[Rfam]
RNA sequence: AUCUGAAAAAGGCAAACUCCAUCGAAAGAGGAGGACGCAAAGCCAUGAGCCUAACCGUUGAAAAACGCAAGGUCGUCAGGUUGCCAGG
Numbered sequence: 001a002u003c004u005g006a007a008a009a010a011g012g013c014a015a016a017c018u019c020c021a022u023c024g025a026a027a028g029a030g031g032a033g034g035a036c037g038c039a040a041a042g043c044c045a046u047g048a049g050c051c052u053a054a055c056c057g058u059u060g061a062a063a064a065a066c067g068c069a070a071g072g073u074c075g076u077c078a079g080g081u082u083g084c085c086a087g088g
Stems, first nucleotide, its partner, number of pairs: 012038002017033004022029002041082004046078003049073003056067004